[Rfam]
RNA sequence: CUGACGACCGCGUUCGGGUCAAUUGCGGAAUGCAACACCCGAUCUCCCUGUUCAUCCCUCCGGGGAUGGAUAUUGCAAAGGGGGAGCGCGUCGCUGUCAG
Numbered sequence: 001c002u003g004a005c006g007a008c009c010g011c012g013u014u015c016g017g018g019u020c021a022a023u024u025g026c027g028g029a030a031u032g033c034a035a036c037a038c039c040c041g042a043u044c045u046c047c048c049u050g051u052u053c054a055u056c057c058c059u060c061c062g063g064g065g066a067u068g069g070a071u072a073u074u075g076c077a078a079a080g081g082g083g084g085a086g087c088g089c090g091u092c093g094c095u096g097u098c099a100g
Stems, first nucleotide, its partner, number of pairs: 001100005009090005015041004023035005043085005049072009
A member of the RNA family "L4-Archaeoglobi ribosomal protein leades" from Haloferax mediterranei, 100 nucleotides long. The sequence is in the family's curated seed alignment. For this family Rfam cites "Discovery of 20 novel ribosomal leader candidates in bacteria and archaea" (Eckert and Weinberg, BMC Microbiol, 2020).